[Rfam]
SAM riboswitch aptamer (S box leader): a 102-nucleotide RNA from Thermanaeromonas toyohensis.
The match comes from Rfam's covariance-model search (93 bits).
RNA sequence: CUCUUAUCGAGAGUGGCGGAGGGACGGGCCCGAUGAAGCCCGGCAACCGGCCUUAAGGCACGGUGCCAAUUCCCGCAGGAAGGAAUUCCUGGCAGAUGAGAG
Numbered sequence: 001c002u003c004u005u006a007u008c009g010a011g012a013g014u015g016g017c018g019g020a021g022g023g024a025c026g027g028g029c030c031c032g033a034u035g036a037a038g039c040c041c042g043g044c045a046a047c048c049g050g051c052c053u054u055a056a057g058g059c060a061c062g063g064u065g066c067c068a069a070u071u072c073c074c075g076c077a078g079g080a081a082g083g084a085a086u087u088c089c090u091g092g093c094a095g096a097u098g099a100g101a102g
Stems, first nucleotide, its partner, number of pairs: 001102008013041001015040003021031003025075004042067004047063002050059003071094001076091006
For this family Rfam cites "The riboswitch-mediated control of sulfur metabolism in bacteria" (Epshtein et al., Proc Natl Acad Sci U S A, 2003). The base pairs follow the family's consensus structure, which is taken from published work.